The family of this 360-nucleotide part of an RNA from Thioalkalivibrio paradoxus is "Bacterial large subunit ribosomal RNA". Clan: LSU clan. Taxonomically the source falls in Thioalkalivibrio paradoxus (Bacteria, Pseudomonadota, Gammaproteobacteria, Ectothiorhodospiraceae).
RNA sequence: UGAGAGAACUCGGGUGAAGGAACUAGGCAAAAUGGUACCGUAACUUCGGGAGAAGGUACGCCCUUGACUGUGAUGGGACUUGCUCCCCGAGCAGUUGAGGGUCGCAGAGACCAGGCCGCUGCGACUGUUUAUUAAAAACAUAGCACUCUGCAAACUCGAAAGAGGACGUAUAGGGUGUGACGCCUGCCCGGUGCCGGAAGGUUAAUUGAUGGGGUUAGCGCAAGCGAAGCUCUUGAUCGAAGCCCCGGUAAACGGCGGCCGUAACUAUAACGGUCCUAAGGUAGCGAAAUUCCUUGUCGGGUAAGUUCCGACCUGCACGAAUGGCGUAACGAUGGCGGCACUGUCUCCACCCGAGACUCA
Numbered sequence: 001u002g003a004g005a006g007a008a009c010u011c012g013g014g015u016g017a018a019g020g021a022a023c024u025a026g027g028c029a030a031a032a033u034g035g036u037a038c039c040g041u042a043a044c045u046u047c048g049g050g051a052g053a054a055g056g057u058a059c060g061c062c063c064u065u066g067a068c069u070g071u072g073a074u075g076g077g078a079c080u081u082g083c084u085c086c087c088c089g090a091g092c093a094g095u096u097g098a099g100g101g102u103c104g105c106a107g108a109g110a111c112c113a114g115g116c117c118g119c120u121g122c123g124a125c126u127g128u129u130u131a132u133u134a135a136a137a138a139c140a141u142a143g144c145a146c147u148c149u150g151c152a153a154a155c156u157c158g159a160a161a162g163a164g165g166a167c168g169u170a171u172a173g174g175g176u177g178u179g180a181c182g183c184c185u186g187c188c189c190g191g192u193g194c195c196g197g198a199a200g201g202u203u204a205a206u207u208g209a210u211g212g213g214g215u216u217a218g219c220g221c222a223a224g225c226g227a228a229g230c231u232c233u234u235g236a237u238c239g240a241a242g243c244c245c246c247g248g249u250a251a252a253c254g255g256c257g258g259c260c261g262u263a264a265c266u267a268u269a270a271c272g273g274u275c276c277u278a279a280g281g282u283a284g285c286g287a288a289a290u291u292c293c294u295u296g297u298c299g300g301g302u303a304a305g306u307u308c309c310g311a312c313c314u315g316c317a318c319g320a321a322u323g324g325c326g327u328a329a330c331g332a333u334g335g336c337g338g339c340a341c342u343g344u345c346u347c348c349a350c351c352c353g354a355g356a357c358u359c360a
Base pairs, nucleotide, nucleotide: 001360002359003358004357009355010354011353012352013351014350015349016348018346019345020344035059036058037057038056039055044049060102061101062100063099064098065097066096067095068094069093070092071091103107115339116338117337118336119335120334121333122331123330126140127139128138143178144177145176146175147174148173149172150171151168155164156163157162181326182325183324184323186256187255188254191253192252193249194248195247196246197245200244201243202242211233212232213231214230215229218225219224257275258274259273260272261271262270276280286313296312297311298310299309300308301307
Dot-bracket structure: ((((....((((((((.(((..............(((((....(....).....)))))((((((((((((...................))))))))))))(...).......(((((((((..(((.........)))..(((((((((...(((....)))...)..))))))))..((((.(((..(((((((..(((........(((((..((....))...)))))........))))))))..)))))((((((.......))))))(...).....(.........((((((.....))))))).........))))...)).)))))))....))).)))))))).))))